Shown here is a 478-nucleotide RNA from Pseudogymnoascus sp. VKM F-4281, a member of the family "RNase MRP". The match comes from Rfam's covariance-model search (106 bits). The base pairs follow the family's consensus structure, which is taken from published work. About the family: RNase MRP is an enzymatically active ribonucleoprotein with two distinct roles in eukaryotes.
RNA sequence: UCCUCGUUCAAAGGAUCGCAGUCGAAGCACACAAACGGAGCAGACCUCGUGUCUCUCAGCCCUUCAUGGGCUAAUCAAUGCUUUGGGAGAAAGUCCCCGGACGACCUUUUACCUCGUGUACAAAGGAACGCGGAAACGCGCCGCCAUAGAAGCACUGCGGCUUCUUAUUUCUCCUCUCCUUCCUACACUUAGGCCGACCUUCGUCGCUGCUUGUACUCGCUUUCUGCGCAUUUGAUUGCUGCGGCUGGAGGAUGGGGAGACCAUAUGGAUGAAGAUAUGAGUCCGAGCUCUCCUGAUCCAGCUGCGGUAGAGCAUAUGCAACGACUUCGGGGAGGCGGGGAAGUACUCUCGGUCUGGGUUAGGGCUCAUGGGAGAGGGGAGGCUUUCGUCGAGAGUGAUAGUUAUGCGAUUGCUCCCUUGGCCUGCCUCACGGUUGGUCCUGGGGGGUAACUCGAUGGGGCUUAUUCUUGAGACGAGG
Numbered sequence: 001u002c003c004u005c006g007u008u009c010a011a012a013g014g015a016u017c018g019c020a021g022u023c024g025a026a027g028c029a030c031a032c033a034a035a036c037g038g039a040g041c042a043g044a045c046c047u048c049g050u051g052u053c054u055c056u057c058a059g060c061c062c063u064u065c066a067u068g069g070g071c072u073a074a075u076c077a078a079u080g081c082u083u084u085g086g087g088a089g090a091a092a093g094u095c096c097c098c099g100g101a102c103g104a105c106c107u108u109u110u111a112c113c114u115c116g117u118g119u120a121c122a123a124a125g126g127a128a129c130g131c132g133g134a135a136a137c138g139c140g141c142c143g144c145c146a147u148a149g150a151a152g153c154a155c156u157g158c159g160g161c162u163u164c165u166u167a168u169u170u171c172u173c174c175u176c177u178c179c180u181u182c183c184u185a186c187a188c189u190u191a192g193g194c195c196g197a198c199c200u201u202c203g204u205c206g207c208u209g210c211u212u213g214u215a216c217u218c219g220c221u222u223u224c225u226g227c228g229c230a231u232u233u234g235a236u237u238g239c240u241g242c243g244g245c246u247g248g249a250g251g252a253u254g255g256g257g258a259g260a261c262c263a264u265a266u267g268g269a270u271g272a273a274g275a276u277a278u279g280a281g282u283c284c285g286a287g288c289u290c291u292c293c294u295g296a297u298c299c300a301g302c303u304g305c306g307g308u309a310g311a312g313c314a315u316a317u318g319c320a321a322c323g324a325c326u327u328c329g330g331g332g333a334g335g336c337g338g339g340g341a342a343g344u345a346c347u348c349u350c351g352g353u354c355u356g357g358g359u360u361a362g363g364g365c366u367c368a369u370g371g372g373a374g375a376g377g378g379g380a381g382g383c384u385u386u387c388g389u390c391g392a393g394a395g396u397g398a399u400a401g402u403u404a405u406g407c408g409a410u411u412g413c414u415c416c417c418u419u420g421g422c423c424u425g426c427c428u429c430a431c432g433g434u435u436g437g438u439c440c441u442g443g444g445g446g447g448u449a450a451c452u453c454g455a456u457g458g459g460g461c462u463u464a465u466u467c468u469u470g471a472g473a474c475g476a477g478g
Stems, first nucleotide, its partner, number of pairs: 002478006008471004014411006022087001023085006038062001040060002043057002091463003095460004129140004148165006281383003413447006
Its Rfam clan is "RNaseP clan". On this family, see Schmitt et al., FASEB J 1993: "Secondary structure of RNase MRP RNA as predicted by phylogenetic comparison".